[Rfam]
RNA sequence: AAUAAACAGCGAGGAAAAGCCGAGGGAGCGUCGUGAGCAAACUGCGCAGCAGUUUGCUGCCGAACGCUCAAGAGGCCUUGACGAGCGUCCAAACAUGAGCACAGAGCAACGCAAGGCCGCCAGUGCGGCCGAAGCGGGGUGAGGUGCGAAUGUUUGGAGCGAUGCGAGAGCGCCCGUGGCGCGGAGCAGCGCGUAGUUUAUU
Numbered sequence: 001a002a003u004a005a006a007c008a009g010c011g012a013g014g015a016a017a018a019g020c021c022g023a024g025g026g027a028g029c030g031u032c033g034u035g036a037g038c039a040a041a042c043u044g045c046g047c048a049g050c051a052g053u054u055u056g057c058u059g060c061c062g063a064a065c066g067c068u069c070a071a072g073a074g075g076c077c078u079u080g081a082c083g084a085g086c087g088u089c090c091a092a093a094c095a096u097g098a099g100c101a102c103a104g105a106g107c108a109a110c111g112c113a114a115g116g117c118c119g120c121c122a123g124u125g126c127g128g129c130c131g132a133a134g135c136g137g138g139g140u141g142a143g144g145u146g147c148g149a150a151u152g153u154u155u156g157g158a159g160c161g162a163u164g165c166g167a168g169a170g171c172g173c174c175c176g177u178g179g180c181g182c183g184g185a186g187c188a189g190c191g192c193g194u195a196g197u198u199u200a201u202u
Base pairs, nucleotide, nucleotide: 001202002201003200004199005198006197007196010085013082016079017078019076020075021074026069027068028067029066030065031064032062089157090156091155092154093153094152095151096150099147100146101145102144106140107139110136111135112134159192160191161190163188164187165186170182171181172180173179

A member of the RNA family "Clostridiales-1 RNA" from Sarcina sp. DSM 11001, 202 nucleotides long. The match comes from Rfam's covariance-model search (61 bits). Pairs were carried over by alignment from the consensus structure, which is taken from published work. By type it is a small RNA. The family has 194 seed sequences and 1,172 matches in Rfam 15.1.